[Rfam]
Nucleotides: 100
Stems, first nucleotide, its partner, number of pairs: 007038001010035007017027003074091004079086002
Number, partner (000 for none) and nucleotide at each position: 001000u002000a003000g004000a005000u006000u007038g008000g009000c010035g011034u012033g013032g014031g015030c016029g017027a018026c019025c020000c021000u022000a023000u024000g025019g026018g027017u028000a029016u030015g031014u032013c033012c034011a035010u036000a037000g038007c039000g040000c041000a042000u043000a044000u045000c046000a047000u048000g049000g050000c051000a052000u053000c054000u055000u056000g057000u058000a059000u060000g061000g062000g063000c064000g065000g066000a067000a068000u069000u070000c071000g072000g073000a074091c075090a076089g077088c078000c079086g080085g081000a082000g083000a084000u085080c086079u087000g088077g089076u090075u091074g092000c093000c094000u095000g096000g097000a098000u099000g100000c
Shown here is a 100-nucleotide sequence from Desulfamplus magnetovallimortis, a member of the family "Pyrrolysine insertion sequence mtbB".
By type it is a cis-regulatory element.
A reference for the family is Theil Have et al. (2013), "Effects of using coding potential, sequence conservation and mRNA structure conservation for predicting pyrroly-sine containing genes", BMC Bioinformatics.
A search with the family's covariance model found it, with a score of 98 bits.